[Rfam]
RNA sequence: AAGUGCUCCGGGGUCGGUGAGAAUCCGAACCGGCGGUGAUAGUCCGCGACCCGACGCAAUGCAUCUCACGAUGCGGGCGGCGGUUGAGCUGGUGAAAUUCCAGGACCGACGGUGAUGCGACACAGAAGUGUGGCUAGUCCGGAUGAGAGGAAGCACAC
Numbered sequence: 001a002a003g004u005g006c007u008c009c010g011g012g013g014u015c016g017g018u019g020a021g022a023a024u025c026c027g028a029a030c031c032g033g034c035g036g037u038g039a040u041a042g043u044c045c046g047c048g049a050c051c052c053g054a055c056g057c058a059a060u061g062c063a064u065c066u067c068a069c070g071a072u073g074c075g076g077g078c079g080g081c082g083g084u085u086g087a088g089c090u091g092g093u094g095a096a097a098u099u100c101c102a103g104g105a106c107c108g109a110c111g112g113u114g115a116u117g118c119g120a121c122a123c124a125g126a127a128g129u130g131u132g133g134c135u136a137g138u139c140c141g142g143a144u145g146a147g148a149g150g151a152a153g154c155a156c157a158c
Stems, first nucleotide, its partner, number of pairs: 003156005008150002015027003031108002033047004042106002051083002089103004110141003
RNA: FMN riboswitch aptamer (RFN element)